[Rfam]
RNA: Rhodo-rpoB RNA
RNA sequence: GGAUCGGGAGGCUCCGGUGGGACGGGUGCCAGGCAUUGAUCCGCGACAAGACCCCUCUCGUAUGGUCGCACCGUCGUAGCCCCGACGGCGGGUGCA
Numbered sequence: 001g002g003a004u005c006g007g008g009a010g011g012c013u014c015c016g017g018u019g020g021g022a023c024g025g026g027u028g029c030c031a032g033g034c035a036u037u038g039a040u041c042c043g044c045g046a047c048a049a050g051a052c053c054c055c056u057c058u059c060g061u062a063u064g065g066u067c068g069c070a071c072c073g074u075c076g077u078a079g080c081c082c083c084g085a086c087g088g089c090g091g092g093u094g095c096a
Base pairs, nucleotide, nucleotide: 001042002041003040004039005038010030011029012028013026014025015024016023068095069094070093071092072090073089074088075087076086